RNA sequence: AGGGCUGGAAGAGGUGCGUUAUUCAGGUAGCGUAUGUUAGGAGCACAAACUCCAUUGAGCAUACGUAAGGGGAAUCAACGCCGAGAAACAACAAUAUUUGUGUCAUUGUUGUUUCGGGCGACUAGGUUGAAUCCUAGCGACUGUCACCAAUAGCUAUUUAAACGUAGCUUAUUAGUUUGGUGGAGAGCUUCUGGUCUU
Numbered sequence: 001a002g003g004g005c006u007g008g009a010a011g012a013g014g015u016g017c018g019u020u021a022u023u024c025a026g027g028u029a030g031c032g033u034a035u036g037u038u039a040g041g042a043g044c045a046c047a048a049a050c051u052c053c054a055u056u057g058a059g060c061a062u063a064c065g066u067a068a069g070g071g072g073a074a075u076c077a078a079c080g081c082c083g084a085g086a087a088a089c090a091a092c093a094a095u096a097u098u099u100g101u102g103u104c105a106u107u108g109u110u111g112u113u114u115c116g117g118g119c120g121a122c123u124a125g126g127u128u129g130a131a132u133c134c135u136a137g138c139g140a141c142u143g144u145c146a147c148c149a150a151u152a153g154c155u156a157u158u159u160a161a162a163c164g165u166a167g168c169u170u171a172u173u174a175g176u177u178u179g180g181u182g183g184a185g186a187g188c189u190u191c192u193g194g195u196c197u198u
Stems, first nucleotide, its partner, number of pairs: 006193006016081005021075004030066008085115011116142002119139001122137005144183007
The family of this 198-nucleotide RNA from Pseudoalteromonas translucida is "Lysine riboswitch aptamer". Rfam describes the family as follows. Riboswitches are metabolite binding domains within certain messenger RNAs that serve as precision sensors for their corresponding targets. Allosteric rearrangement of mRNA structure is mediated by ligand binding, and this results in modulation of gene expression. This family includes riboswitches that sense lysine in a number of genes involved in lysine metabolism, including lysC. Lineage of the source: Bacteria > Pseudomonadota > Pseudoalteromonadaceae > Pseudoalteromonas > Pseudoalteromonas translucida. The base pairs follow the family's consensus structure, which is taken from published work. Rfam links the family to the GO term lysine biosynthetic process. Rfam 15.1 lists 3,224 matches to the family in 1,923 species. A search with the family's covariance model found it, with a score of 101 bits.